[Rfam]
Notes:
The family of this 267-nucleotide sequence from Saprolegnia parasitica is "RNase MRP". The family's RNA type in Rfam is ribozyme. The family is grouped with related families in Rfam's "RNaseP clan". The organism belongs to Saprolegnia parasitica, within Eukaryota. The base pairs follow the family's consensus structure, which is taken from published work.
RNA sequence: GAACACGAUUUAGAAUUGCGAAGUCAAGCCGCUUGCCGAUGGCAAGCGAACGCUUGGGGAAAUUCCCCGGACCGUAGGGCAGCAAGUGCCGGCCAUAACGGCAGACCGCUUCUUUUGGACGCUGCGGAGAUGGCACUUCGGUGCUGGAGCACGUGCUGAUGAAGGAAGUCUGAUCGUCAUACCACAGUUAUGCAAUUGGCCCCUGGCAACGUCGACGUCGUGCGACAGCCAGCGGGUUAACCCAACGGGGAUCACUCAUGUCGUGUU
Dot-bracket structure: .((((((((.(..((((((....((((((.(((((((...)))))))....))))))....[[.[[[[.........((((.....)))).(((.....))).(((...((((((.......(((......((((......))))...))).........)))))).))).....................)))))).((((.(...........................).)))).........]]]]]].....).))))))))